The family of this 85-nucleotide RNA sequence from Nicotiana tabacum is "Small nucleolar RNA U54". Rfam's curators write: U54 is a C/D box small nucleolar RNA, which acts as a methylation guide for 18S ribosomal RNA in plants. The family has 21 seed sequences and 614 matches in Rfam 15.1. Clan: U54 clan. The literature on the family includes a 2003 paper in Nucleic Acids Res by Chen et al., "The high diversity of snoRNAs in plants: identification and comparative study of 120 snoRNA genes from Oryza sativa". Gene Ontology terms of the family: nucleolus and RNA processing.

RNA sequence: AGCUCAAUGAUUACAUGCCUUAUGGGCAAUAUACGCUAUUCCGAUUUAAAGUAUGAAGAAUCAAUUUUUUUCAAUUAUGAGAGCU
Numbered sequence: 001a002g003c004u005c006a007a008u009g010a011u012u013a014c015a016u017g018c019c020u021u022a023u024g025g026g027c028a029a030u031a032u033a034c035g036c037u038a039u040u041c042c043g044a045u046u047u048a049a050a051g052u053a054u055g056a057a058g059a060a061u062c063a064a065u066u067u068u069u070u071u072c073a074a075u076u077a078u079g080a081g082a083g084c085u
Stems, first nucleotide, its partner, number of pairs: 001085005